This 127-nucleotide RNA from Musa troglodytarum belongs to the Rfam family "Small nucleolar RNA snoR111". Its family is annotated with nucleolus and RNA processing in the Gene Ontology. The family's RNA type in Rfam is H/ACA-box small nucleolar RNA. Lineage of the source: Eukaryota > Petrosaviidae > commelinids > Musaceae > Musa. It scores 60 bits against the family's covariance model.

[Rfam]
RNA sequence: GCUAAGAGGGAACGCGUCUCUUCGGUAACGUCCUCCUCGAUCAGAAGGCAGAGGCAAAAAGACGAGUCGAGAUAUCGUUUCAGUCGCCACUCCACCCGUUGGCGGUUCGAUUGUUGCUCGACCACAC
Numbered sequence: 001g002c003u004a005a006g007a008g009g010g011a012a013c014g015c016g017u018c019u020c021u022u023c024g025g026u027a028a029c030g031u032c033c034u035c036c037u038c039g040a041u042c043a044g045a046a047g048g049c050a051g052a053g054g055c056a057a058a059a060a061g062a063c064g065a066g067u068c069g070a071g072a073u074a075u076c077g078u079u080u081c082a083g084u085c086g087c088c089a090c091u092c093c094a095c096c097c098g099u100u101g102g103c104g105g106u107u108c109g110a111u112u113g114u115u116g117c118u119c120g121a122c123c124a125c126a127c
Stems, first nucleotide, its partner, number of pairs: 001041001003039001006035004066122001068120004074111004083106007092098001